[Rfam]
RNA sequence: UAUUUGAAGUGAUGAUUGUACGUUUUUGAAGGAGAUUCGCUCAAUGACUAAACCUUCUUAAAUAAUUUUUCGAUUUGCAUGUCAGUCUGAUCAUAUU
Numbered sequence: 001u002a003u004u005u006g007a008a009g010u011g012a013u014g015a016u017u018g019u020a021c022g023u024u025u026u027u028g029a030a031g032g033a034g035a036u037u038c039g040c041u042c043a044a045u046g047a048c049u050a051a052a053c054c055u056u057c058u059u060a061a062a063u064a065a066u067u068u069u070u071c072g073a074u075u076u077g078c079a080u081g082u083c084a085g086u087c088u089g090a091u092c093a094u095a096u097u
Stems, first nucleotide, its partner, number of pairs: 002096002005093003